[Rfam]
RNA sequence: UGUCCCAUUUUAGUACCACUUUUUCAUUACCUAGAAUAAGUGGCUAUGCUAAUGGGAUAGAGCAAUAUCUGUUAUCGUCUGAAGGGGGUAGAUAUCUUCAUCUUCCCAUAAAUGAAAUAACAGAACAUGUUUUG
Dot-bracket structure: ...((((........((((....................)))).........))))..............((((.............((.(..............).))........)))).............
Shown here is a 134-nucleotide RNA from Aquarana catesbeiana, a member of the family "Small nucleolar RNA SNORA29". Rfam's curators write: ACA29 is a member of the H/ACA class of snoRNA that guide the sites of modification of uridines to pseudouridines. The family's RNA type in Rfam is H/ACA-box small nucleolar RNA. A reference for the family is Huttenhofer et al. (2001), "RNomics: an experimental approach that identifies 201 candidates for novel, small, non-messenger RNAs in mouse", EMBO J. The base pairs follow the family's consensus structure, which was predicted with PFOLD.